[Rfam]
RNA sequence: UUCAGAUUUUUUGAAUUGACAAGCUGAGGUUCUGUGACAAAUGACAGUUAAGAGCAUGUUAAAGUUGUUAUGAAA
Numbered sequence: 001u002u003c004a005g006a007u008u009u010u011u012u013g014a015a016u017u018g019a020c021a022a023g024c025u026g027a028g029g030u031u032c033u034g035u036g037a038c039a040a041a042u043g044a045c046a047g048u049u050a051a052g053a054g055c056a057u058g059u060u061a062a063a064g065u066u067g068u069u070a071u072g073a074a075a
Stems, first nucleotide, its partner, number of pairs: 001074004
The record is a 75-nucleotide RNA sequence from Pongo abelii, which matches "Small nucleolar RNA SNORD28" in Rfam. Rfam 15.1 lists 229 matches to the family in 149 species. Its family is annotated with nucleolus and RNA processing in the Gene Ontology. By type it is a C/D-box small nucleolar RNA.